Nucleotides: 069
Base pairs, nucleotide, nucleotide: 005064006063007062008061009060010059011058012057013056014055016053017052026046027045028044029043030042
Number, partner (000 for none) and nucleotide at each position: 001000a002000g003000a004000c005064a006063g007062u008061g009060c010059c011058c012057a013056c014055g015000u016053c017052a018000u019000u020000c021000u022000c023000c024000u025000u026046u027045a028044g029043g030042a031000u032000a033000a034000u035000u036000a037000c038000c039000c040000u041000u042030u043029c044028c045027u046026a047000a048000a049000u050000a051000u052017u053016g054000u055014c056013g057012u058011g059010g060009g061008c062007a063006u064005u065000a066000a067000a068000a069000a
This 69-nucleotide RNA sequence belongs to the Rfam family "potC RNA". Rfam classes the family as a cis-regulatory element. It is one of the family's seed sequences.